The record is a 77-nucleotide RNA sequence from Alligator mississippiensis, which matches "Mammalian CPEB3 ribozyme" in Rfam. The mammalian CPEB3 ribozyme is a self cleaving RNA located in the second intron of the CPEB3 gene which belongs to a family of genes regulating messenger RNA polyadenylation. Its family is annotated with RNA nuclease activity in the Gene Ontology.
[Rfam]
RNA sequence: GGUUGCAAGCUUGAGGCCAUAGCAGAAGCACUCAUAGCACAACCCUGUCAGAUUCCAACAAAUCUGCAUAUUCUGCU
Numbered sequence: 001g002g003u004u005g006c007a008a009g010c011u012u013g014a015g016g017c018c019a020u021a022g023c024a025g026a027a028g029c030a031c032u033c034a035u036a037g038c039a040c041a042a043c044c045c046u047g048u049c050a051g052a053u054u055c056c057a058a059c060a061a062a063u064c065u066g067c068a069u070a071u072u073c074u075g076c077u
Base pairs, nucleotide, nucleotide: 013045015044016043021077022076023075024074025073026072027071028040049066050065051064052063053062054061